[Rfam]
RNA sequence: GAGCGGUCAUAAAAAAUAAUGUUUUUGAGCGUUGGCUUUUCCAACGCCCCCGAUAGGGGUGAGCAAACGAGUAAGUGAGUUUGCGAAUAAUUUUACCGC
Numbered sequence: 001g002a003g004c005g006g007u008c009a010u011a012a013a014a015a016a017u018a019a020u021g022u023u024u025u026u027g028a029g030c031g032u033u034g035g036c037u038u039u040u041c042c043a044a045c046g047c048c049c050c051c052g053a054u055a056g057g058g059g060u061g062a063g064c065a066a067a068c069g070a071g072u073a074a075g076u077g078a079g080u081u082u083g084c085g086a087a088u089a090a091u092u093u094u095a096c097c098g099c
Stems, first nucleotide, its partner, number of pairs: 010027005016022002030046006048059004063084006071076001088095002

This 99-nucleotide RNA sequence from Rodentibacter trehalosifermentans belongs to the Rfam family "Aggregatibacter sRNA 22".
Rfam 15.1 lists 101 matches to the family in 35 species.
Pairs were carried over by alignment from the consensus structure, which was predicted with RNAfold.